Overview: The record is a 106-nucleotide RNA from Oryza sativa, which matches "mir-399 microRNA precursor family" in Rfam. It is one of the family's seed sequences. About the family: mir-399 was identified in both Arabidopsis thaliana and Oryza sativa computationally and was later experimentally verified. mir-399 is thought to target mRNAs coding for a phosphatase transporter. The mature sequence is excised from the 3' arm of the hairpin.
RNA sequence: AGCUGCAUUGCUGGGCAAGUUGUCCUUUGGCAGAUGUUGCAGUUCAUCAUCGAUGCCUGGGGGUUACCAGACUACUGCCAAAGGAAAUUUGCCCCGGAAUUCAUCU
Numbered sequence: 001a002g003c004u005g006c007a008u009u010g011c012u013g014g015g016c017a018a019g020u021u022g023u024c025c026u027u028u029g030g031c032a033g034a035u036g037u038u039g040c041a042g043u044u045c046a047u048c049a050u051c052g053a054u055g056c057c058u059g060g061g062g063g064u065u066a067c068c069a070g071a072c073u074a075c076u077g078c079c080a081a082a083g084g085a086a087a088u089u090u091g092c093c094c095c096g097g098a099a100u101u102c103a104u105c106u
Stems, first nucleotide, its partner, number of pairs: 005102001007100003011096001013094007023085003028080006035074002